[Rfam]
RNA sequence: UGGUGCCCAACGUGGGGCCUGGAUACUGGGGGACAACGUGAGGGUCCAACAAUGAAGAAAGAAGGGGUGCACCCGUUCAAAUAGUUUGGAGACGUCGUGGUAGCCUGCUGUGACCGAGCCGACAGGUAAGUUGGUCGUUCAAUCAUGGGGCAAGAAUUGAGUCAACAUCAGAAAUAUGUAAUACAGUUAAAAGAAGCCUUACAGGCAAGAGGAGUAAAGGUUACAACUGAGGAUUUAUUUCAUUUCUUUGAUUUUGUGAAGGACCUUUGUCCCU
Dot-bracket structure: .....(((...(((.........)))..)))......((.........))................................(.(.(.....((.(((((.......)))))..)).....)..).)........(.((((....))))).......(((((.................................)).))).......((((((...(((((.........))))).......)))))).........(.((((....)))).)